Rfam assigns this 132-nucleotide RNA sequence from Mycobacterium parascrofulaceum to the family "ALIL pseudoknot". The family's RNA type in Rfam is cis-regulatory element.
[Rfam]
RNA sequence: GGCGAGUUUCUUCGGCGCGGAGCUCGACCGCCAACACAAGAAAUAGUCGCCUUCGUCGACACCCACCGCGAGGAGUUCGGAGUCGAGCCCAUCAUCACCGUCCUGCGCACCGCAGGGGUGGCGGUGGCUCCG
Dot-bracket structure: ................((((.......))))..............................................(((((......((.((.((((...................)))).)).)))))))
Numbered sequence: 001g002g003c004g005a006g007u008u009u010c011u012u013c014g015g016c017g018c019g020g021a022g023c024u025c026g027a028c029c030g031c032c033a034a035c036a037c038a039a040g041a042a043a044u045a046g047u048c049g050c051c052u053u054c055g056u057c058g059a060c061a062c063c064c065a066c067c068g069c070g071a072g073g074a075g076u077u078c079g080g081a082g083u084c085g086a087g088c089c090c091a092u093c094a095u096c097a098c099c100g101u102c103c104u105g106c107g108c109a110c111c112g113c114a115g116g117g118g119u120g121g122c123g124g125u126g127g128c129u130c131c132g
Stems, first nucleotide, its partner, number of pairs: 017031004078132005089127002092124002095121004
The family has 26 seed sequences and 2,146 matches in Rfam 15.1. Its family is annotated with positive regulation of translational frameshifting in the Gene Ontology. For this family Rfam cites "Apical loop-internal loop RNA pseudoknots: a new type of stimulator of -1 translational frameshifting in bacteria" (Mazauric et al., J Biol Chem, 2008).